[Rfam]
RNA sequence: AACGUAUCGAAAGGAGGUGAUCCAGUGUCUCAUUGUUCGUAUCCGCAGGUGCUGGUCAUCGCGGUUGACACGUUCGCCUCUCGCGAGCGUGCCGUCUGAGCGAUUUCCCCGCAUCACUGCGGUCGGCAAUGGAAGGGCUGCCCGACGACGGGCGGCCCU
Numbered sequence: 001a002a003c004g005u006a007u008c009g010a011a012a013g014g015a016g017g018u019g020a021u022c023c024a025g026u027g028u029c030u031c032a033u034u035g036u037u038c039g040u041a042u043c044c045g046c047a048g049g050u051g052c053u054g055g056u057c058a059u060c061g062c063g064g065u066u067g068a069c070a071c072g073u074u075c076g077c078c079u080c081u082c083g084c085g086a087g088c089g090u091g092c093c094g095u096c097u098g099a100g101c102g103a104u105u106u107c108c109c110c111g112c113a114u115c116a117c118u119g120c121g122g123u124c125g126g127c128a129a130u131g132g133a134a135g136g137g138c139u140g141c142c143c144g145a146c147g148a149c150g151g152g153c154g155g156c157c158c159u
Base pairs, nucleotide, nucleotide: 016023017022031131032130033129034128035127036126037125044064048060049059050058051057066070073102078100079099083095084094085093109122110121111120112119113118134159135158136157137156138155139154140153141152142151143150144149